Source information:
Xanthomonas sRNA sX9: a 75-nucleotide RNA sequence from Herbaspirillum sp. meg3. On this family, see Schmidtke et al., Nucleic Acids Res 2011: "Genome-wide transcriptome analysis of the plant pathogen Xanthomonas identifies sRNAs with putative virulence functions". The family has 16 seed sequences and 309 matches in Rfam 15.1. Rfam classes the family as a small RNA.
[Rfam]
RNA sequence: AUGUACUAAAGUACACUACGGUUCCUCCGCUCCGGCCGCUAUCGGCUAACGGUCUCUCGCUACGGACCAUGAGCA
Numbered sequence: 001a002u003g004u005a006c007u008a009a010a011g012u013a014c015a016c017u018a019c020g021g022u023u024c025c026u027c028c029g030c031u032c033c034g035g036c037c038g039c040u041a042u043c044g045g046c047u048a049a050c051g052g053u054c055u056c057u058c059g060c061u062a063c064g065g066a067c068c069a070u071g072a073g074c075a
Base pairs, nucleotide, nucleotide: 002015003014004013005012006011019034020033021032024029046073047072049070051068052067
Dot-bracket structure: .(((((....)))))...(((..(....)..)))...........((.(.((..............)).).))..

The base pairs follow the family's consensus structure, which was predicted with RNAalifold.